[Rfam]
RNA sequence: GGAUCGGGCCUUUCAGGCAUCCUCUCCUAAAACUUUCAAAGCCAGCCUUUCGGGGCUGGCUCUUUUUUGCGUUUUU
Numbered sequence: 001g002g003a004u005c006g007g008g009c010c011u012u013u014c015a016g017g018c019a020u021c022c023u024c025u026c027c028u029a030a031a032a033c034u035u036u037c038a039a040a041g042c043c044a045g046c047c048u049u050u051c052g053g054g055g056c057u058g059g060c061u062c063u064u065u066u067u068u069g070c071g072u073u074u075u076u
Base pairs, nucleotide, nucleotide: 008018009017010016011015040061041060042059043058044057045056046055047054048053
Dot-bracket structure: .......((((...)))).....................(((((((((....)))))))))...............
Makes More Granules Regulator RNA (mmgR): a 76-nucleotide RNA sequence from Sphingomonas aliaeris. The family has 87 seed sequences and 1,791 matches in Rfam 15.1. Its family is annotated with response to nitrogen compound, DNA-templated transcription, termination and protein binding in the Gene Ontology. Rfam describes the family as follows. SuhB later renamed mmgR (makes more granules regulator) was a putative non-coding RNA found multiple times in the Agrobacterium tumefaciens genome and related alpha-proteobacteria. Other non-coding RNAs uncovered in the same analysis include: speF, ybhL, metA, and serC.Several studies inSinorhizobium meliloti showed that suhB element is indeed a non-coding RNA:firstly it was detected on Northern blot and called Sm8RNA, secondly in an RNAseq study referred to as SmelC689.The mutant phenotype's (strain lacking the small RNA) cytoplasm contains higher content of polyhydroxybutyrate (PBH)storage granules than wild type strain. It is annotated as a small RNA. The organism belongs to Sphingomonas, within Bacteria.